[Rfam]
RNA sequence: GGUGGCACGAUGAGGAACUAGCUUUGCUAACUGAUGUAUGAGGUCAUCGACCAAUGACUCAGUAAUGUCCUUUUCAUUCUGAGUGCCUU
Number, nucleotide and partner (000 for none) at each position: 001g000002g000003u000004g087005g086006c085007a084008c083009g000010a077011u076012g075013a074014g073015g000016a000017a000018c000019u000020a000021g000022c000023u000024u000025u000026g000027c000028u000029a000030a000031c000032u000033g000034a000035u000036g000037u000038a000039u000040g000041a000042g000043g051044u050045c049046a000047u000048c000049g045050a044051c043052c000053a000054a000055u000056g000057a000058c000059u000060c000061a000062g000063u000064a000065a000066u000067g000068u000069c000070c000071u000072u000073u014074u013075c012076a011077u010078u000079c000080u000081g000082a000083g008084u007085g006086c005087c004088u000089u000